RNA sequence: AUUCCGGUAACCAUAGGGUGUCAUUCCAGUGCUUGACACUGGAAUCCAGGAAAUUUUGCUUGUAAGUAAGCAAACUGAUUUGGUGAGCAUAAAAAGUGGCUGAUCUUAUGCUGAAUAAACGCUUUUGAUGAAGUUGCAUGGAAAGCUGGAUCCCAGUGUCUGGGCACUGGGAUGACAUCCUUCUUGGUGGAGUGU
Dot-bracket structure: ..........((((....((((((((((((((((((((((((.((((((................................................................................................)))))).)))))))).)))))))))))))))).........)))).....
Numbered sequence: 001a002u003u004c005c006g007g008u009a010a011c012c013a014u015a016g017g018g019u020g021u022c023a024u025u026c027c028a029g030u031g032c033u034u035g036a037c038a039c040u041g042g043a044a045u046c047c048a049g050g051a052a053a054u055u056u057u058g059c060u061u062g063u064a065a066g067u068a069a070g071c072a073a074a075c076u077g078a079u080u081u082g083g084u085g086a087g088c089a090u091a092a093a094a095a096g097u098g099g100c101u102g103a104u105c106u107u108a109u110g111c112u113g114a115a116u117a118a119a120c121g122c123u124u125u126u127g128a129u130g131a132a133g134u135u136g137c138a139u140g141g142a143a144a145g146c147u148g149g150a151u152c153c154c155a156g157u158g159u160c161u162g163g164g165c166a167c168u169g170g171g172a173u174g175a176c177a178u179c180c181u182u183c184u185u186g187g188u189g190g191a192g193u194g195u
Stems, first nucleotide, its partner, number of pairs: 011190004019177016035160008044151006